RNA: Nuclear RNase P
RNA sequence: GUGGUGGGAAGCUCACCAUUGAGGUCACAUGCUGAGUGUAAAUCACUACCAGUACCUUGGGGAAGGUCUGAGAUAAGAGCCAAUCACUGUUCUUGCAGGGUAUUACCUGAUGCAGGUGAGGAAGUUACCAGAGAUAUGAUUCAGGUUGUAACAGAGAGCAGGAGAAGCAGUUGGAAGGACUGUGGAUGCAGUUGCUCCCUGGAAUGGGAAUGGCUUCUGGCUGGCUUGGUAAGCUCAAUGUGUGAGGUGAGGUCAGCAAUCUCACAACCCAAUUCAGACUACUCUCCCAUCAC
Dot-bracket structure: ((((..(((..(((((...(((((..........((((.....)))).......)))))........[[[[[.....((((......(((((.....)))))((((((.....))))))(((((((.............(((..........................................................)))........)))))))))))...................)))))(((((((.....))))))).......]]]]].......)))..))))
Numbered sequence: 001g002u003g004g005u006g007g008g009a010a011g012c013u014c015a016c017c018a019u020u021g022a023g024g025u026c027a028c029a030u031g032c033u034g035a036g037u038g039u040a041a042a043u044c045a046c047u048a049c050c051a052g053u054a055c056c057u058u059g060g061g062g063a064a065g066g067u068c069u070g071a072g073a074u075a076a077g078a079g080c081c082a083a084u085c086a087c088u089g090u091u092c093u094u095g096c097a098g099g100g101u102a103u104u105a106c107c108u109g110a111u112g113c114a115g116g117u118g119a120g121g122a123a124g125u126u127a128c129c130a131g132a133g134a135u136a137u138g139a140u141u142c143a144g145g146u147u148g149u150a151a152c153a154g155a156g157a158g159c160a161g162g163a164g165a166a167g168c169a170g171u172u173g174g175a176a177g178g179a180c181u182g183u184g185g186a187u188g189c190a191g192u193u194g195c196u197c198c199c200u201g202g203a204a205u206g207g208g209a210a211u212g213g214c215u216u217c218u219g220g221c222u223g224g225c226u227u228g229g230u231a232a233g234c235u236c237a238a239u240g241u242g243u244g245a246g247g248u249g250a251g252g253u254c255a256g257c258a259a260u261c262u263c264a265c266a267a268c269c270c271a272a273u274u275c276a277g278a279c280u281a282c283u284c285u286c287c288c289a290u291c292a293c
Stems, first nucleotide, its partner, number of pairs: 001293004007287003012246005020059005035047004068277005078222004088102005103119006120218007140203003247265007